Shown here is a 115-nucleotide RNA sequence from Metallococcus carri, a member of the family "SAM (S-adenosyl methionine) riboswitch aptamer".
Taxonomically the source falls in Metallococcus (Bacteria, Bacillati, Actinomycetota, Micrococcales).

RNA sequence: GGUGACGAGAGGUAGCGCGAAGCCCUGGCUUGCUACCCGGCAACCCUCCACCGCGGUGGGGUGCUCCAGGUGACCACCGGAUGACCCGCGUCCCGUCGGGUCAUAAGCGCGAGGA
Numbered sequence: 001g002g003u004g005a006c007g008a009g010a011g012g013u014a015g016c017g018c019g020a021a022g023c024c025c026u027g028g029c030u031u032g033c034u035a036c037c038c039g040g041c042a043a044c045c046c047u048c049c050a051c052c053g054c055g056g057u058g059g060g061g062u063g064c065u066c067c068a069g070g071u072g073a074c075c076a077c078c079g080g081a082u083g084a085c086c087c088g089c090g091u092c093c094c095g096u097c098g099g100g101u102c103a104u105a106a107g108c109g110c111g112a113g114g115a
Base pairs, nucleotide, nucleotide: 001078002077003076004075009038011037012036013035014034015033016032021030022029039065040064041063044061045060046059048056049055081104082103083102084101085100086099087098088097